[Rfam]
RNA: narK RNA
RNA sequence: GGCGCGCCGCUUGCUAGGUACAGCGCAACAGAGCAGUCAACGCUGAUUGCCCAUCCACGACAAAGGCGCCGU
Numbered sequence: 001g002g003c004g005c006g007c008c009g010c011u012u013g014c015u016a017g018g019u020a021c022a023g024c025g026c027a028a029c030a031g032a033g034c035a036g037u038c039a040a041c042g043c044u045g046a047u048u049g050c051c052c053a054u055c056c057a058c059g060a061c062a063a064a065g066g067c068g069c070c071g072u
Stems, first nucleotide, its partner, number of pairs: 033050006